RNA: Metazoan signal recognition particle RNA
RNA sequence: GUCGGGCAUGGUGGCACAUCUGUAGUCCCAGCUGCCAGGUGGGCUGAGCCCGACGGAUCGCUUGAGCCCAGGAGUUCUGGGCUGCCGUGCACUAUGCCAAGCGGGCGUCCAAGCUAAGGCCACCAUCAAUGCGGUGGCCCGUAUGGGGAGCUGCGGGACACCAGGCUGACUAAGGAGGGGUGAACCGGCCCAGGUCGGAGACAGAGCAGGUCAAAGCUCCCGUGGCAGUCAGCAGCGGGGUCGCACCUGUGAAUAGCCACGCCAGCGUAGCCUGGGCAGCACAGAGACACGCGGGCGGCU
Dot-bracket structure: ((((((..((....))..)))....(((.........)).))))...(((((.....((.((...(((((((....(((.((((.((((..((((.(...(((((.((((..(((..(((..((((((.(..((((.((((..(((....))))))).))))..).)).(...)..(((((.....((((....(.(....).)....))))...))))).))))..)))...))).))...)).)))))).)))).)))).)))).)))))))))).....)).))....)))))....
Numbered sequence: 001g002u003c004g005g006g007c008a009u010g011g012u013g014g015c016a017c018a019u020c021u022g023u024a025g026u027c028c029c030a031g032c033u034g035c036c037a038g039g040u041g042g043g044c045u046g047a048g049c050c051c052g053a054c055g056g057a058u059c060g061c062u063u064g065a066g067c068c069c070a071g072g073a074g075u076u077c078u079g080g081g082c083u084g085c086c087g088u089g090c091a092c093u094a095u096g097c098c099a100a101g102c103g104g105g106c107g108u109c110c111a112a113g114c115u116a117a118g119g120c121c122a123c124c125a126u127c128a129a130u131g132c133g134g135u136g137g138c139c140c141g142u143a144u145g146g147g148g149a150g151c152u153g154c155g156g157g158a159c160a161c162c163a164g165g166c167u168g169a170c171u172a173a174g175g176a177g178g179g180g181u182g183a184a185c186c187g188g189c190c191c192a193g194g195u196c197g198g199a200g201a202c203a204g205a206g207c208a209g210g211u212c213a214a215a216g217c218u219c220c221c222g223u224g225g226c227a228g229u230c231a232g233c234a235g236c237g238g239g240g241u242c243g244c245a246c247c248u249g250u251g252a253a254u255a256g257c258c259a260c261g262c263c264a265g266c267g268u269a270g271c272c273u274g275g276g277c278a279g280c281a282c283a284g285a286g287a288c289a290c291g292c293g294g295g296c297g298g299c300u
Stems, first nucleotide, its partner, number of pairs: 001044003004021003009016002026041001027039002048296005058287002061284002066277007077270003081266004086261004092256004097251001101250005107244002109239002113236003118230003123225004127168002130165001133162004138157004144153003170174001177220005187212004195204001197202001